[Rfam]
RNA sequence: AUGACCGUUGUGGGAGAGAUCGAACAAAGGAUUCGGCGCCGAAGGAGCAAAUCCCAAAAAACCUUGGGACAAAUCUCUCAGGCAACCCGUACCACAAUGGGACG
Numbered sequence: 001a002u003g004a005c006c007g008u009u010g011u012g013g014g015a016g017a018g019a020u021c022g023a024a025c026a027a028a029g030g031a032u033u034c035g036g037c038g039c040c041g042a043a044g045g046a047g048c049a050a051a052u053c054c055c056a057a058a059a060a061a062c063c064u065u066g067g068g069a070c071a072a073a074u075c076u077c078u079c080a081g082g083c084a085a086c087c088c089g090u091a092c093c094a095c096a097a098u099g100g101g102a103c104g
Base pairs, nucleotide, nucleotide: 006099007098008097009096010095011094012093013092020036021035022034023033038083039082040081041079042078045077046076047075052069053068054067055066056065057064
RNA: Glycine riboswitch aptamer